[Rfam]
RNA sequence: UUCUUACGAACCUUGGCACUGGAAGAAUUCACAGAUUGUAUUUGAAUCGUGAUUCUUUUAAUGCCAUAUUUCGUGGGAA
Numbered sequence: 001u002u003c004u005u006a007c008g009a010a011c012c013u014u015g016g017c018a019c020u021g022g023a024a025g026a027a028u029u030c031a032c033a034g035a036u037u038g039u040a041u042u043u044g045a046a047u048c049g050u051g052a053u054u055c056u057u058u059u060a061a062u063g064c065c066a067u068a069u070u071u072c073g074u075g076g077g078a079a
Base pairs, nucleotide, nucleotide: 003077004076005075006074007073008072009071010070014066015065016064017063018062020060021059022058023056025055026054027053029052030051031050032049034047

The family of this 79-nucleotide RNA sequence from Tenebrio molitor is "mir-263 microRNA precursor family". A reference for the family is Li et al. (2009), "Direct sequencing and expression analysis of a large number of miRNAs in Aedes aegypti and a multi-species survey of novel mosquito miRNAs", BMC Genomics. Rfam 15.1 lists 368 matches to the family in 211 species. The family is grouped with related families in Rfam's "mir-182 clan".